The record is a 114-nucleotide sequence from Macrostomum lignano, which matches "Potassium channel RNA editing signal" in Rfam. Pairs were carried over by alignment from the consensus structure, which is taken from published work. Rfam classes the family as a cis-regulatory element. Lineage of the source: Eukaryota > Eumetazoa > Lophotrochozoa > Rhabditophora > Macrostomum. Rfam describes the family as follows. This family represents a group of sequences related to the human potassium channel Kv1.1 hairpin element which directs the efficient modification of an adenosine to inosine by an adenosine deaminase acting on RNA (ADAR). The ADAR modification causes an isoleucine/valine recoding event which lies in the ion-conducting pore of the potassium channel. It is thought that this editing event targets the process of fast inactivation and allows a more rapid recovery from inactivation at negative potentials.
RNA sequence: GUUGGCUACGGCGAUAUGCUGCCCGUGACGGUCUGGGGCAAGCUGGUGGGGUCCCUGUGCGCCAUAGCCGGUGUGCUGACCAUAGCCCUGCCCGUGCCAGUGAUUGUGUCGAAC
Numbered sequence: 001g002u003u004g005g006c007u008a009c010g011g012c013g014a015u016a017u018g019c020u021g022c023c024c025g026u027g028a029c030g031g032u033c034u035g036g037g038g039c040a041a042g043c044u045g046g047u048g049g050g051g052u053c054c055c056u057g058u059g060c061g062c063c064a065u066a067g068c069c070g071g072u073g074u075g076c077u078g079a080c081c082a083u084a085g086c087c088c089u090g091c092c093c094g095u096g097c098c099a100g101u102g103a104u105u106g107u108g109u110c111g112a113a114c
Stems, first nucleotide, its partner, number of pairs: 001114002005110001007108005014101002018097002021095002037077004049063002